[Rfam]
RNA: Small nucleolar RNA SNORA42/SNORA80 family
RNA sequence: GCAUGAGUUUGGCUUUAUGGCAGGUCCAUCCCCUUGGUUCUCUCGUGGUGCCCCAUGUCAUAGCAUACUGGCCUUGAACCACUGCCUGGCCUCUGCCUGUAGGAUGCAGGCACUGAAGCAGGUUACAUAGUG
Numbered sequence: 001g002c003a004u005g006a007g008u009u010u011g012g013c014u015u016u017a018u019g020g021c022a023g024g025u026c027c028a029u030c031c032c033c034u035u036g037g038u039u040c041u042c043u044c045g046u047g048g049u050g051c052c053c054c055a056u057g058u059c060a061u062a063g064c065a066u067a068c069u070g071g072c073c074u075u076g077a078a079c080c081a082c083u084g085c086c087u088g089g090c091c092u093c094u095g096c097c098u099g100u101a102g103g104a105u106g107c108a109g110g111c112a113c114u115g116a117a118g119c120a121g122g123u124u125a126c127a128u129a130g131u132g
Stems, first nucleotide, its partner, number of pairs: 001058004005053001007051002015048006022041003025037002069125006080115002085110002087106002090103003